[Rfam]
RNA sequence: GAAGCGUCAACCCGGCACCGCACCAGCGGAUCAGACCGGGACCGUCCCACCGCAAGGCAGGACUACC
Numbered sequence: 001g002a003a004g005c006g007u008c009a010a011c012c013c014g015g016c017a018c019c020g021c022a023c024c025a026g027c028g029g030a031u032c033a034g035a036c037c038g039g040g041a042c043c044g045u046c047c048c049a050c051c052g053c054a055a056g057g058c059a060g061g062a063c064u065a066c067c
Stems, first nucleotide, its partner, number of pairs: 011040005018029004044063004050057002
This 67-nucleotide RNA sequence from Micromonospora sonchi belongs to the Rfam family "Transposase-2 RNA". By type it is a small RNA. A search with the family's covariance model found it, with a score of 63 bits. The family's consensus secondary structure is taken from published work.